A member of the RNA family "mir-132 microRNA precursor family" from Scophthalmus maximus, 92 nucleotides long. Taxonomically the source falls in Scophthalmus (Eukaryota, Euteleosteomorpha, Euacanthomorphacea, Pleuronectoidei). The base pairs follow the family's consensus structure, which was predicted with RNAalifold. Gene Ontology terms of the family: miRNA-mediated post-transcriptional gene silencing and RISC complex. A search with the family's covariance model found it, with a score of 69 bits. On this family, see Chen et al., Genes Dev 2005: "The developmental miRNA profiles of zebrafish as determined by small RNA cloning".
[Rfam]
RNA sequence: GUGCAUCAAUACCUUGGCUCUAGACUGCUUACUGCUAAAAAAAACUCCUCCAAAGUACAGUAACAGUCUACAGUCAUGGCUACUGACGUCUG
Numbered sequence: 001g002u003g004c005a006u007c008a009a010u011a012c013c014u015u016g017g018c019u020c021u022a023g024a025c026u027g028c029u030u031a032c033u034g035c036u037a038a039a040a041a042a043a044a045c046u047c048c049u050c051c052a053a054a055g056u057a058c059a060g061u062a063a064c065a066g067u068c069u070a071c072a073g074u075c076a077u078g079g080c081u082a083c084u085g086a087c088g089u090c091u092g
Base pairs, nucleotide, nucleotide: 012079013078015076016075017074018073023068024067025066026065027064029063030062031061032060033059
Dot-bracket structure: ...........((.((((....(((((.(((((.........................))))))))))....)))).)).............